[Rfam]
RNA sequence: AAUUGUUGUGAUGAUUGGCAAAAUGUUCAACUGCUCUGAGGAGAGUGAGUGAGAAGAGCCUUUCUGAACAAAU
Numbered sequence: 001a002a003u004u005g006u007u008g009u010g011a012u013g014a015u016u017g018g019c020a021a022a023a024u025g026u027u028c029a030a031c032u033g034c035u036c037u038g039a040g041g042a043g044a045g046u047g048a049g050u051g052a053g054a055a056g057a058g059c060c061u062u063u064c065u066g067a068a069c070a071a072a073u
Stems, first nucleotide, its partner, number of pairs: 003071004
Rfam assigns this 73-nucleotide sequence from Callaeas wilsoni to the family "Small nucleolar RNA Z40". Pairs were carried over by alignment from the consensus structure, which was predicted with PFOLD. Rfam 15.1 lists 615 matches to the family in 541 species. The family's RNA type in Rfam is C/D-box small nucleolar RNA. It scores 67 bits against the family's covariance model. Gene Ontology terms of the family: nucleolus and RNA processing. The organism belongs to Callaeas, within Eukaryota. The literature on the family includes a 2003 paper in Nucleic Acids Res by Chen et al., "The high diversity of snoRNAs in plants: identification and comparative study of 120 snoRNA genes from Oryza sativa".